Rfam assigns this 117-nucleotide sequence to the family "epsC RNA". Rfam classes the family as a cis-regulatory element. Pairs were carried over by alignment from the consensus structure, which is taken from published work. It is one of the family's seed sequences.
RNA sequence: AGGUGAUGUCUCCUGACCUGUAUCAAUGGAGGCACUCGGCUCUGCUGUGGGCAGCUGAAGUUGCUGCCUUAGAUGCUGGUCGUCGCUGGCGGGGCGUGAGGAUGGGUUAAAUGCCCA
Numbered sequence: 001a002g003g004u005g006a007u008g009u010c011u012c013c014u015g016a017c018c019u020g021u022a023u024c025a026a027u028g029g030a031g032g033c034a035c036u037c038g039g040c041u042c043u044g045c046u047g048u049g050g051g052c053a054g055c056u057g058a059a060g061u062u063g064c065u066g067c068c069u070u071a072g073a074u075g076c077u078g079g080u081c082g083u084c085g086c087u088g089g090c091g092g093g094g095c096g097u098g099a100g101g102a103u104g105g106g107u108u109a110a111a112u113g114c115c116c117a
Stems, first nucleotide, its partner, number of pairs: 001019004007034007035100004039095008049069007072084004103117005
Dot-bracket structure: [[[[..(((((((..]]]]........)))))))((((((((((((..(((((((.......)))))))..((((.....))))...)))))))).))))..(((((.....)))))